[Rfam]
RNA sequence: AGAGGUUACAAAUUUGAGGCCAAGGCAGAAGUGCUCAUCGUGCAGCCUGUCAGAUUCCAAUUAAAUCUGUGAAUUCUACU
Numbered sequence: 001a002g003a004g005g006u007u008a009c010a011a012a013u014u015u016g017a018g019g020c021c022a023a024g025g026c027a028g029a030a031g032u033g034c035u036c037a038u039c040g041u042g043c044a045g046c047c048u049g050u051c052a053g054a055u056u057c058c059a060a061u062u063a064a065a066u067c068u069g070u071g072a073a074u075u076c077u078a079c080u
Base pairs, nucleotide, nucleotide: 018047019046020045024080025079027077028076029075030074031043032042033041051069052068053067054066055065056064

This 80-nucleotide RNA from Crocodylus porosus belongs to the Rfam family "Mammalian CPEB3 ribozyme".
The family's consensus secondary structure is taken from published work.
NCBI's taxonomy places the organism under Eukaryota, Euteleostomi, Sarcopterygii, Tetrapoda, Crocodylus.